[Rfam]
RNA sequence: GGUCACUCCUCCAUUCAUGAAAACGGGGUACUUCCCCGGCCUGUUACCUCAGAGGAAAGUCCAUCAUGGCACUGAGCGUUCAAGAGAAAGCCCAGAUCGUUAACGAGUACAAGCAAGCUGAA
Numbered sequence: 001g002g003u004c005a006c007u008c009c010u011c012c013a014u015u016c017a018u019g020a021a022a023a024c025g026g027g028g029u030a031c032u033u034c035c036c037c038g039g040c041c042u043g044u045u046a047c048c049u050c051a052g053a054g055g056a057a058a059g060u061c062c063a064u065c066a067u068g069g070c071a072c073u074g075a076g077c078g079u080u081c082a083a084g085a086g087a088a089a090g091c092c093c094a095g096a097u098c099g100u101u102a103a104c105g106a107g108u109a110c111a112a113g114c115a116a117g118c119u120g121a122a
Base pairs, nucleotide, nucleotide: 008028009027010026011025048076049075050074051073052072054070
RNA: Ribosomal S15 leader